This 110-nucleotide sequence from Tepidibacillus sp. HK-1 belongs to the Rfam family "SAM riboswitch aptamer (S box leader)". Rfam describes the family as follows. The SAM riboswitch is found upstream of a number of genes which code for proteins involved in methionine or cysteine biosynthesis in Gram-positive bacteria.
[Rfam]
RNA sequence: UUCUUAUCCAGAGAGGUGGAGGGACUGGCCCUUUGAAACCUCGGCAGCGGGUUCUCCUUAUGAGAAUACUGUGCCAAUUCCUGCAAGCUUAAAAGCUUGGUAGAUAAGAA
Numbered sequence: 001u002u003c004u005u006a007u008c009c010a011g012a013g014a015g016g017u018g019g020a021g022g023g024a025c026u027g028g029c030c031c032u033u034u035g036a037a038a039c040c041u042c043g044g045c046a047g048c049g050g051g052u053u054c055u056c057c058u059u060a061u062g063a064g065a066a067u068a069c070u071g072u073g074c075c076a077a078u079u080c081c082u083g084c085a086a087g088c089u090u091a092a093a094a095g096c097u098u099g100g101u102a103g104a105u106a107a108g109a110a
Stems, first nucleotide, its partner, number of pairs: 001110008013042005021031003025083001027081002043075004048071002051067004079102001084099006

Overview:
The source organism's lineage runs through Bacteria, Bacillota, Bacilli, Caryophanales and Tepidibacillus. A search with the family's covariance model found it, with a score of 94 bits.